Overview: Shown here is a 151-nucleotide sequence from Acinetobacter sp. ANC 4558, a member of the family "FMN riboswitch aptamer (RFN element)". Gene Ontology term of the family: FMN binding.

RNA sequence: CAUCGCUUCAGGGCGGGGUGUGAUUCCCCACCGGUGGUAAAAUUGAAUAUUAUUAUAUAUUUAAUAAGCCCACGAGCAAAUUCAAAACAUCAUUUGCAGAUUUGGUGAAAUUCCAAAGCCGACGGUAUAGUCCGGAUGAAAGAAGACGGUG
Numbered sequence: 001c002a003u004c005g006c007u008u009c010a011g012g013g014c015g016g017g018g019u020g021u022g023a024u025u026c027c028c029c030a031c032c033g034g035u036g037g038u039a040a041a042a043u044u045g046a047a048u049a050u051u052a053u054u055a056u057a058u059a060u061u062u063a064a065u066a067a068g069c070c071c072a073c074g075a076g077c078a079a080a081u082u083c084a085a086a087a088c089a090u091c092a093u094u095u096g097c098a099g100a101u102u103u104g105g106u107g108a109a110a111u112u113c114c115a116a117a118g119c120c121g122a123c124g125g126u127a128u129a130g131u132c133c134g135g136a137u138g139a140a141a142g143a144a145g146a147c148g149g150u151g
Base pairs, nucleotide, nucleotide: 003149004148005147006145007144008143009142016028017027018026030131031130032121033120034073035072036071037070068119069118076097077096078095101117102116103115104114105113123134124133125132